[Rfam]
The family of this 529-nucleotide part of an RNA from Toxoplasma gondii is "Eukaryotic small subunit ribosomal RNA". It scores 1786 bits against the family's covariance model. The source organism's lineage runs through Eukaryota, Apicomplexa, Eimeriorina, Toxoplasma and Toxoplasma gondii.

RNA sequence: CAGUUAAAAAGCUCGUAGUUGGAUUUCUGCUGGAAGCAGCCAGUCCGCCCUCAGGGGUGUGCACUUGGUGAAUUCUAGCAUCCUUCUGGAUUUCUCCACACUUCAUUGUGUGGAGUUUUUUCCAGGACUUUUACUUUGAGAAAAUUAGAGUGUUUCAAGCAGGCUUGUCGCCUUGAAUACUGCAGCAUGGAAUAAUAAGAUAGGAUUUCGGCCCUAUUUUGUUGGUUUCUAGGACUGAAGUAAUGAUUAAUAGGGACGGUUGGGGGCAUUCGUAUUUAACUGUCAGAGGUGAAAUUCUUAGAUUUGUUAAAGACGAACUACUGCGAAAGCAUUUGCCAAAGAUGUUUUCAUUAAUCAAGAACGAAAGUUAGGGGCUCGAAGACGAUCAGAUACCGUCGUAGUCUUAACCAUAAACUAUGCCGACUAGAGAUAGGAAAACGUCAUGCUUGACUUCUCCUGCACCUUAUGAGAAAUCAAAGUCUUUGGGUUCUGGGGGGAGUAUGGUCGCAAGGCUGAAACUUAAAGGAAU
Number, nucleotide and partner (000 for none) at each position: 001c492002a491003g490004u000005u000006a000007a000008a000009a489010a000011g362012c000013u360014c359015g000016u000017a000018g355019u354020u353021g000022g000023a000024u000025u000026u000027c000028u000029g000030c000031u000032g000033g000034a000035a000036g000037c000038a000039g000040c000041c000042a000043g000044u000045c000046c000047g000048c000049c000050c000051u000052c000053a000054g000055g000056g000057g000058u000059g000060u000061g000062c000063a000064c000065u000066u000067g000068g000069u000070g000071a000072a000073u000074u000075c000076u000077a000078g000079c000080a000081u000082c000083c000084u000085u000086c000087u000088g000089g000090a000091u000092u000093u000094c000095u000096c000097c000098a000099c000100a000101c000102u000103u000104c000105a000106u000107u000108g000109u000110g000111u000112g000113g000114a000115g000116u000117u000118u000119u000120u000121u000122c000123c000124a000125g000126g000127a000128c000129u000130u000131u000132u000133a000134c000135u000136u000137u000138g000139a000140g000141a000142a000143a000144a000145u000146u000147a000148g000149a000150g000151u000152g000153u000154u000155u000156c000157a000158a000159g000160c000161a000162g000163g000164c000165u000166u000167g000168u000169c000170g000171c000172c000173u000174u000175g000176a000177a000178u000179a000180c000181u000182g000183c000184a000185g000186c000187a000188u000189g000190g000191a000192a000193u000194a000195a000196u000197a000198a000199g000200a000201u000202a000203g000204g000205a000206u000207u000208u000209c000210g000211g000212c000213c000214c000215u000216a000217u000218u000219u000220u000221g000222u000223u000224g000225g000226u000227u000228u000229c000230u000231a000232g000233g000234a000235c000236u000237g000238a000239a000240g000241u000242a000243a000244u000245g000246a000247u000248u000249a000250a000251u000252a000253g349254g348255g347256a346257c344258g343259g000260u341261u340262g000263g000264g000265g337266g336267c335268a334269u000270u000271c315272g314273u000274a000275u311276u310277u309278a308279a307280c306281u000282g304283u000284c000285a000286g297287a296288g295289g000290u000291g000292a000293a000294a000295u288296u287297c286298u000299u000300a000301g000302a000303u000304u282305u000306g280307u279308u278309a277310a276311a275312g000313a000314c272315g271316a000317a000318c000319u000320a000321c000322u000323g330324c329325g000326a000327a000328a000329g324330c323331a000332u000333u000334u268335g267336c266337c265338a000339a000340a261341g260342a000343u258344g257345u000346u256347u255348u254349c253350a000351u000352u000353a020354a019355u018356c000357a000358a000359g014360a013361a000362c011363g000364a000365a000366a000367g408368u407369u406370a405371g404372g403373g000374g000375c000376u000377c401378g000379a000380a000381g397382a396383c395384g394385a000386u000387c000388a000389g000390a000391u000392a000393c000394c384395g383396u382397c381398g000399u000400a000401g377402u000403c372404u371405u370406a369407a368408c367409c000410a000411u000412a000413a000414a000415c000416u000417a000418u000419g488420c487421c486422g481423a480424c479425u000426a464427g463428a000429g000430a000431u459432a458433g457434g456435a455436a000437a453438a452439c000440g451441u450442c449443a000444u000445g000446c000447u000448u000449g442450a441451c440452u438453u437454c000455u435456c434457c433458u432459g431460c000461a000462c000463c427464u426465u000466a000467u000468g475469a474470g000471a000472a000473a000474u469475c468476a000477a000478a000479g424480u423481c422482u000483u000484u000485g000486g421487g420488u419489u009490c003491u002492g001493g000494g521495g520496g519497g000498a000499g000500u000501a000502u000503g514504g513505u512506c511507g000508c000509a000510a000511g506512g505513c504514u503515g000516a000517a000518a000519c496520u495521u494522a000523a000524a000525g000526g000527a000528a000529u000